[Rfam]
RNA sequence: AGGGGUGAACGCGACUGGCGGCACGGAGGAUGGGCAACCAUCGGGGAGCUCGUCGCGGGGGUCGACCGCCUGGGCCUCCGCG
Dot-bracket structure: ...(((((..((..(([[[[[........((((....))))..))..)))))))....(((((..]]]]]..))))).....
RNA: ZMP/ZTP riboswitch aptamer (pfl RNA motif)
Organism: Micromonospora sp. MH33